[Rfam]
RNA sequence: ACCGCAGACCGCCUUAUCGCCGUUUAAUUUUAAAGGGAGGAAAGUCCGGGCACCAAAGAGUAGCAUAGCGGGUAAUGCCCGUCACCAAAAGCAAUUUUGGGAGGACAAGUGCAACAGAAAGUAUGUACAGAUAAUGCUGUAGUGAAACCAGGUAAACUCUAUGCGGUGAAAUACCAAGUAUAUCGGCAUUUAAGGAUUACUCGUCCGUUGUCGAAGGGUAGGUAGAUUGAGUUCUGGAGUAAUUCAGAAUCUAGAUAAAUGAUAAGGGUUUGCUUUUGCAAAUACAGAACCCGGCUUAUAGGUCUGCAUUUUUU
Numbered sequence: 001a002c003c004g005c006a007g008a009c010c011g012c013c014u015u016a017u018c019g020c021c022g023u024u025u026a027a028u029u030u031u032a033a034a035g036g037g038a039g040g041a042a043a044g045u046c047c048g049g050g051c052a053c054c055a056a057a058g059a060g061u062a063g064c065a066u067a068g069c070g071g072g073u074a075a076u077g078c079c080c081g082u083c084a085c086c087a088a089a090a091g092c093a094a095u096u097u098u099g100g101g102a103g104g105a106c107a108a109g110u111g112c113a114a115c116a117g118a119a120a121g122u123a124u125g126u127a128c129a130g131a132u133a134a135u136g137c138u139g140u141a142g143u144g145a146a147a148c149c150a151g152g153u154a155a156a157c158u159c160u161a162u163g164c165g166g167u168g169a170a171a172u173a174c175c176a177a178g179u180a181u182a183u184c185g186g187c188a189u190u191u192a193a194g195g196a197u198u199a200c201u202c203g204u205c206c207g208u209u210g211u212c213g214a215a216g217g218g219u220a221g222g223u224a225g226a227u228u229g230a231g232u233u234c235u236g237g238a239g240u241a242a243u244u245c246a247g248a249a250u251c252u253a254g255a256u257a258a259a260u261g262a263u264a265a266g267g268g269u270u271u272g273c274u275u276u277u278g279c280a281a282a283u284a285c286a287g288a289a290c291c292c293g294g295c296u297u298a299u300a301g302g303u304c305u306g307c308a309u310u311u312u313u314u
Stems, first nucleotide, its partner, number of pairs: 001310001004307007011299001012267007020037002023034004042297003046294005051168004058202004063164005068082005083103001085100006104159002109157002111153002127140004172224004183214005194206004231250008
Notes:
The family of this 314-nucleotide RNA from Flavobacterium macacae is "Bacterial RNase P class A". Rfam links the family to the GO terms ribonuclease P activity, tRNA processing and dimeric ribonuclease P complex. It scores 193 bits against the family's covariance model. The family's RNA type in Rfam is ribozyme. Taxonomically the source falls in Flavobacterium (Bacteria, Pseudomonadati, Bacteroidota, Flavobacteriales). Ribonuclease P (RNase P) is a ubiquitous endoribonuclease, found in archaea, bacteria and eukarya as well as chloroplasts and mitochondria.